[Rfam]
RNA sequence: CGAACCCGCGCGGGAGAGAUCCCGGUGCAGCCAGUGCCGGGGCGCCGAAGGAGCAAACCUCCCCGGAACCUCUCAGGCAAAAGGACCGCGUGGGCGAG
Numbered sequence: 001c002g003a004a005c006c007c008g009c010g011c012g013g014g015a016g017a018g019a020u021c022c023c024g025g026u027g028c029a030g031c032c033a034g035u036g037c038c039g040g041g042g043c044g045c046c047g048a049a050g051g052a053g054c055a056a057a058c059c060u061c062c063c064c065g066g067a068a069c070c071u072c073u074c075a076g077g078c079a080a081a082a083g084g085a086c087c088g089c090g091u092g093g094g095c096g097a098g
Stems, first nucleotide, its partner, number of pairs: 006093008020042007044078003047074002051072003058065001
Rfam assigns this 98-nucleotide RNA sequence from Actinoallomurus iriomotensis to the family "Glycine riboswitch aptamer". Rfam describes the family as follows. This family represents the bacterial glycine riboswitch. Taxonomically the source falls in Actinoallomurus (Bacteria, Actinomycetes, Streptosporangiales, Thermomonosporaceae).